Overview: Rfam assigns this 208-nucleotide sequence from Paenibacillus sp. Leaf72 to the family "c-di-AMP riboswitch aptamer (ydaO/yuaA leader)". It scores 85 bits against the family's covariance model.

RNA sequence: UUCCAGUUUGCGCUUAAUCUUCGAACUUUGGAGAGCGGGGGAACCAUGCACGAUGCUGUGAGGAAUUUGCGGAUCACAUUGCACGCGCACCUGAAUUUCUUCUAGGGGUGAAUUUGGCGGGGAUUGCCAUGAGCAUUCUUCCGACGAUAGGGCAGCUCUCUUGCCCGAACCCGACAGCUAACCUCGUAAGCGUUUAUAGAGAGUGAUC
Numbered sequence: 001u002u003c004c005a006g007u008u009u010g011c012g013c014u015u016a017a018u019c020u021u022c023g024a025a026c027u028u029u030g031g032a033g034a035g036c037g038g039g040g041g042a043a044c045c046a047u048g049c050a051c052g053a054u055g056c057u058g059u060g061a062g063g064a065a066u067u068u069g070c071g072g073a074u075c076a077c078a079u080u081g082c083a084c085g086c087g088c089a090c091c092u093g094a095a096u097u098u099c100u101u102c103u104a105g106g107g108g109u110g111a112a113u114u115u116g117g118c119g120g121g122g123a124u125u126g127c128c129a130u131g132a133g134c135a136u137u138c139u140u141c142c143g144a145c146g147a148u149a150g151g152g153c154a155g156c157u158c159u160c161u162u163g164c165c166c167g168a169a170c171c172c173g174a175c176a177g178c179u180a181a182c183c184u185c186g187u188a189a190g191c192g193u194u195u196a197u198a199g200a201g202a203g204u205g206a207u208c
Stems, first nucleotide, its partner, number of pairs: 011192004018034005035187006045105001106172003114147003150166004
Dot-bracket structure: ..........((((...(((((.......)))))((((((....(...........................................................)(((.....(((............................)))..((((.........))))...))).........)))))).))))................